RNA: Small nucleolar RNA snoR27
Organism: Panicum virgatum
RNA sequence: AGGAUCCAUGAUGCAACCAUUAACUGCGACUGCGUUAUCUUUCUGCAACCUUUUUAUGGGUGCUGAAGAACACAUAAGCUGCUGAGAUCCAUU
Numbered sequence: 001a002g003g004a005u006c007c008a009u010g011a012u013g014c015a016a017c018c019a020u021u022a023a024c025u026g027c028g029a030c031u032g033c034g035u036u037a038u039c040u041u042u043c044u045g046c047a048a049c050c051u052u053u054u055u056a057u058g059g060g061u062g063c064u065g066a067a068g069a070a071c072a073c074a075u076a077a078g079c080u081g082c083u084g085a086g087a088u089c090c091a092u093u
Base pairs, nucleotide, nucleotide: 001092002090003089004088005087